[Rfam]
RNA sequence: CCGGUAACAACAUCCUGGUGCUGCCUGAGUGCGCCUCACAGACUCCAGCAUCAGUGAUUUUGUUGCCGG
Numbered sequence: 001c002c003g004g005u006a007a008c009a010a011c012a013u014c015c016u017g018g019u020g021c022u023g024c025c026u027g028a029g030u031g032c033g034c035c036u037c038a039c040a041g042a043c044u045c046c047a048g049c050a051u052c053a054g055u056g057a058u059u060u061u062g063u064u065g066c067c068g069g
Stems, first nucleotide, its partner, number of pairs: 006064005012058003015054009
RNA: mir-338 microRNA precursor family
Organism: Megalops atlanticus